[Rfam]
SAM riboswitch aptamer (S box leader): a 105-nucleotide RNA from Bacillus sp. cl95.
The base pairs follow the family's consensus structure, which is taken from published work.
RNA sequence: CUCUUAUCAAGAGUGGCGGAGGGACAGGCCCUGCGAUGCCCGGCAACCUUUCUAAUUGGAAGUGGUGCUAAUUCCUGCAAAACGUAACGUUUUGGAAGAUGAGAG
Numbered sequence: 001c002u003c004u005u006a007u008c009a010a011g012a013g014u015g016g017c018g019g020a021g022g023g024a025c026a027g028g029c030c031c032u033g034c035g036a037u038g039c040c041c042g043g044c045a046a047c048c049u050u051u052c053u054a055a056u057u058g059g060a061a062g063u064g065g066u067g068c069u070a071a072u073u074c075c076u077g078c079a080a081a082a083c084g085u086a087a088c089g090u091u092u093u094g095g096a097a098g099a100u101g102a103g104a105g
Stems, first nucleotide, its partner, number of pairs: 001105008013041001015040003021031003025077004042069004047065002049061004073097001078094006
Dot-bracket structure: ((((((((....(.(((...(((.[[[[)))......))))((((.((((((.....))))..))))))...(]]]]((((((.....))))))..)))))))))
It scores 97 bits against the family's covariance model.